Shown here is a 90-nucleotide sequence from Medicago truncatula, a member of the family "MIR5298 microRNA precursor family".
RNA sequence: UUAGGUUUUCUUCAUUUUUUUCUGGAUUUUUUUGGGAUUCGUGUUGUUGAAGGUUGAUGGAGAUGACAUGAAGAUGAAAAAGAUGAAGAA
Numbered sequence: 001u002u003a004g005g006u007u008u009u010c011u012u013c014a015u016u017u018u019u020u021u022c023u024g025g026a027u028u029u030u031u032u033u034g035g036g037a038u039u040c041g042u043g044u045u046g047u048u049g050a051a052g053g054u055u056g057a058u059g060g061a062g063a064u065g066a067c068a069u070g071a072a073g074a075u076g077a078a079a080a081a082g083a084u085g086a087a088g089a090a
Stems, first nucleotide, its partner, number of pairs: 005084005011078009036055004042049001